[Rfam]
RNA sequence: GAUGAAAUAUCUCCGGAAUCUCUGUACUACCUUGAUGAUUACAUUUGAACCUAUGAUCUGAUGACUGCCGGUUUCAU
Numbered sequence: 001g002a003u004g005a006a007a008u009a010u011c012u013c014c015g016g017a018a019u020c021u022c023u024g025u026a027c028u029a030c031c032u033u034g035a036u037g038a039u040u041a042c043a044u045u046u047g048a049a050c051c052u053a054u055g056a057u058c059u060g061a062u063g064a065c066u067g068c069c070g071g072u073u074u075c076a077u
Base pairs, nucleotide, nucleotide: 002077003076004075005074
Small nucleolar RNA MBII-202: a 77-nucleotide sequence from Oncorhynchus tshawytscha. Rfam 15.1 lists 745 matches to the family in 452 species. A search with the family's covariance model found it, with a score of 57 bits.